Glycine riboswitch aptamer: a 97-nucleotide RNA from Microbacterium sp. Root61. Lineage of the source: Bacteria > Bacillati > Actinomycetota > Actinomycetes > Microbacterium. It scores 66 bits against the family's covariance model. From the family's description: This family represents the bacterial glycine riboswitch. Its Rfam clan is "Glycine riboswitch clan".
RNA sequence: AUGUCGCGUGCGGGAGAGCCCCGUCCCCUCGGGGAACGGGCACCGAAGGAGCAAGCCUCCCCGCCAAUCUCUCAGGUCCGCGUACCGCUCGCGUCCG
Numbered sequence: 001a002u003g004u005c006g007c008g009u010g011c012g013g014g015a016g017a018g019c020c021c022c023g024u025c026c027c028c029u030c031g032g033g034g035a036a037c038g039g040g041c042a043c044c045g046a047a048g049g050a051g052c053a054a055g056c057c058u059c060c061c062c063g064c065c066a067a068u069c070u071c072u073c074a075g076g077u078c079c080g081c082g083u084a085c086c087g088c089u090c091g092c093g094u095c096c097g
Stems, first nucleotide, its partner, number of pairs: 006092003010088004020040004042077003045073002049071003055064002